[Rfam]
U7 small nuclear RNA: a 62-nucleotide RNA sequence from Sciurus carolinensis. The family's consensus secondary structure was predicted with PFOLD.

RNA sequence: UAGUGUUGCAGCACUUUUAGAAUUGGUCUAGUAAGCUUUCUGAGCUUUUGCUGGAAGCAACC
Numbered sequence: 001u002a003g004u005g006u007u008g009c010a011g012c013a014c015u016u017u018u019a020g021a022a023u024u025g026g027u028c029u030a031g032u033a034a035g036c037u038u039u040c041u042g043a044g045c046u047u048u049u050g051c052u053g054g055a056a057g058c059a060a061c062c
Stems, first nucleotide, its partner, number of pairs: 035058006044051002
On this family, see Marz et al., Genomics Proteomics Bioinformatics 2007: "U7 snRNAs: a computational survey".